[Rfam]
RNA sequence: CAUCGGCGGAUGAAACCGCCACCGCUCUUGCCGCUGGCCCGUCCCCCGCCGCGGCAGGCCGGAUGGAGACCUUCCCCCCUCUCCGGGUCUUCGUCCAACAGCACAGCCGCCAUGGUCAGCCCCCGGACCGUGGCGGCUUUUU
Numbered sequence: 001c002a003u004c005g006g007c008g009g010a011u012g013a014a015a016c017c018g019c020c021a022c023c024g025c026u027c028u029u030g031c032c033g034c035u036g037g038c039c040c041g042u043c044c045c046c047c048g049c050c051g052c053g054g055c056a057g058g059c060c061g062g063a064u065g066g067a068g069a070c071c072u073u074c075c076c077c078c079c080u081c082u083c084c085g086g087g088u089c090u091u092c093g094u095c096c097a098a099c100a101g102c103a104c105a106g107c108c109g110c111c112a113u114g115g116u117c118a119g120c121c122c123c124c125g126g127a128c129c130g131u132g133g134c135g136g137c138u139u140u141u142u
Stems, first nucleotide, its partner, number of pairs: 026058001028057005036050003061096011105138001107136011
Alphaproteobacterial sRNA ar7: a 142-nucleotide sequence from Allorhizobium borbori. For this family Rfam cites "A survey of sRNA families in alpha-proteobacteria" (del Val et al., RNA Biol, 2012). It is annotated as a small RNA. The match comes from Rfam's covariance-model search (75 bits). Lineage of the source: Bacteria > Pseudomonadota > Alphaproteobacteria > Hyphomicrobiales > Allorhizobium.